[Rfam]
A member of the RNA family "Plastid-psbA-2 3UTR RNA" from Mentha canadensis, 64 nucleotides long.
The family is grouped with related families in Rfam's "Plastid-psbA 3UTR RNA clan".
Lineage of the source: Eukaryota > Streptophyta > Spermatophyta > lamiids > Mentha.
It is one of the family's seed sequences.
The literature on the family includes a 2023 paper in Plant Commun by Richter et al., "Retrograde signaling in plants: A critical review focusing on the GUN pathway and beyond".
About the family: Plastid psbA-2 is a non-coding RNA (ncRNA) present in plastids.

RNA sequence: AAUAUAAGGAGCAAGAAACCCUUUUUGAUAAAACAAGAAAGGGUUUCUUGCUCCUUUAUUUUCU
Numbered sequence: 001a002a003u004a005u006a007a008g009g010a011g012c013a014a015g016a017a018a019c020c021c022u023u024u025u026u027g028a029u030a031a032a033a034c035a036a037g038a039a040a041g042g043g044u045u046u047c048u049u050g051c052u053c054c055u056u057u058a059u060u061u062u063c064u
Stems, first nucleotide, its partner, number of pairs: 006056016024040001025036003